[Rfam]
RNA: Small nucleolar SNORD12/SNORD106
RNA sequence: GCUAGCAUAUAUGAUGACAUGAACUUUUUUCCCCAACUGAUCGACCAUGUUGAUCUAAUCUAUUUAAGCCAGUUUCUGUCUGAUAUGCCAGC
Number, nucleotide and partner (000 for none) at each position: 001g092002c091003u090004a000005g088006c087007a086008u085009a084010u000011a000012u000013g000014a000015u000016g000017a000018c000019a000020u000021g000022a000023a000024c000025u000026u000027u000028u000029u000030u000031c000032c000033c000034c000035a000036a000037c000038u000039g000040a000041u000042c000043g000044a000045c000046c000047a000048u000049g000050u000051u000052g000053a000054u000055c000056u000057a000058a000059u000060c000061u000062a000063u000064u000065u000066a000067a000068g000069c000070c000071a000072g000073u000074u000075u000076c000077u000078g000079u000080c000081u000082g000083a000084u009085a008086u007087g006088c005089c000090a003091g002092c001